[Rfam]
RNA sequence: ACUCAGGCACGACGUGCGCCGUGGCUGGUCACUUAUACAUUUCAAGGACUAUGCCGGCGUGAUGCGCGCGACCGACCUGAAGUUCAACCCUGAGGGA
Numbered sequence: 001a002c003u004c005a006g007g008c009a010c011g012a013c014g015u016g017c018g019c020c021g022u023g024g025c026u027g028g029u030c031a032c033u034u035a036u037a038c039a040u041u042u043c044a045a046g047g048a049c050u051a052u053g054c055c056g057g058c059g060u061g062a063u064g065c066g067c068g069c070g071a072c073c074g075a076c077c078u079g080a081a082g083u084u085c086a087a088c089c090c091u092g093a094g095g096g097a
Stems, first nucleotide, its partner, number of pairs: 001083003004079004013070007020059003
Background:
The record is a 97-nucleotide RNA from Corynebacterium sp. TAE3-ERU30, which matches "L31-Corynebacteriaceae ribosomal protein leader" in Rfam. The source organism's lineage runs through Bacteria, Actinomycetota, Actinomycetes, Corynebacteriaceae and Corynebacterium. A search with the family's covariance model found it, with a score of 63 bits.